The record is a 106-nucleotide RNA sequence from Pararobbsia alpina, which matches "SAM-I/IV (S-adenosyl methionine) riboswitch aptamer" in Rfam. A search with the family's covariance model found it, with a score of 50 bits.

RNA sequence: GGCGGACAUUCUGAAUUGGGUCGGUGCCCAAGCCAACCUGCCUUCCCGGGCAAGGUGGAUCGCGAAAGCGGAUGUGGCUCAUUGAGGAGCAACCAAGCGGGUAAAG
Numbered sequence: 001g002g003c004g005g006a007c008a009u010u011c012u013g014a015a016u017u018g019g020g021u022c023g024g025u026g027c028c029c030a031a032g033c034c035a036a037c038c039u040g041c042c043u044u045c046c047c048g049g050g051c052a053a054g055g056u057g058g059a060u061c062g063c064g065a066a067a068g069c070g071g072a073u074g075u076g077g078c079u080c081a082u083u084g085a086g087g088a089g090c091a092a093c094c095a096a097g098c099g100g101g102u103a104a105a106g
Stems, first nucleotide, its partner, number of pairs: 006075005017030005033058002037055003040051003045101004077090004